[Rfam]
RNA sequence: GCGGCGGCGGCGGGCAAGAUGGCGGCGGGCUCGGACCCCGCCCCUUCCGCCCCGCCGGGCGCUGCA
Numbered sequence: 001g002c003g004g005c006g007g008c009g010g011c012g013g014g015c016a017a018g019a020u021g022g023c024g025g026c027g028g029g030c031u032c033g034g035a036c037c038c039c040g041c042c043c044c045u046u047c048c049g050c051c052c053c054g055c056c057g058g059g060c061g062c063u064g065c066a
Stems, first nucleotide, its partner, number of pairs: 001065005008057004012052004018047002021044002024042005029036001